[Rfam]
RNA sequence: AUAACAACGAGGAAAAAGGGUAAGUAAACAUGCGUGUACGGAUUGCAGAGAGCCGAUGGUUGCUGCGAAUCGGUGUCUGGCGGAUGGUUGAAUAGCCUUUCGAGUUGCUUUACCGAACCACCUGGGUGCAGUAGGAAAAGCCGGGGUUCCCGCCGUUAUCAAGGGAACGGUAUCGAGCCGUUGAUGUCAAAGCUCUGUACCGGCAGGAGUGGAUCUGAACCUCGCUUUACAAUGCGAGGAUCAUGAUCAAUUAAGAUGGUACCACGAGAACUUCGUCCUUAUU
Numbered sequence: 001a002u003a004a005c006a007a008c009g010a011g012g013a014a015a016a017a018g019g020g021u022a023a024g025u026a027a028a029c030a031u032g033c034g035u036g037u038a039c040g041g042a043u044u045g046c047a048g049a050g051a052g053c054c055g056a057u058g059g060u061u062g063c064u065g066c067g068a069a070u071c072g073g074u075g076u077c078u079g080g081c082g083g084a085u086g087g088u089u090g091a092a093u094a095g096c097c098u099u100u101c102g103a104g105u106u107g108c109u110u111u112a113c114c115g116a117a118c119c120a121c122c123u124g125g126g127u128g129c130a131g132u133a134g135g136a137a138a139a140g141c142c143g144g145g146g147u148u149c150c151c152g153c154c155g156u157u158a159u160c161a162a163g164g165g166a167a168c169g170g171u172a173u174c175g176a177g178c179c180g181u182u183g184a185u186g187u188c189a190a191a192g193c194u195c196u197g198u199a200c201c202g203g204c205a206g207g208a209g210u211g212g213a214u215c216u217g218a219a220c221c222u223c224g225c226u227u228u229a230c231a232a233u234g235c236g237a238g239g240a241u242c243a244u245g246a247u248c249a250a251u252u253a254a255g256a257u258g259g260u261a262c263c264a265c266g267a268g269a270a271c272u273u274c275g276u277c278c279u280u281a282u283u
Base pairs, nucleotide, nucleotide: 007105008104015100016099017098018097027089028088029087041077042076043075052074053073054072055071056070057069108140109139110138111137113135114134142155143154144153239248240247241246253280254279255278264276265275266274267273268272

The family of this 283-nucleotide RNA from Effusibacillus dendaii is "T-box leader". By type it is a cis-regulatory leader. The family's consensus secondary structure is taken from published work. Lineage of the source: Bacteria > Bacillati > Bacilli > Caryophanales > Effusibacillus. The match comes from Rfam's covariance-model search (101 bits).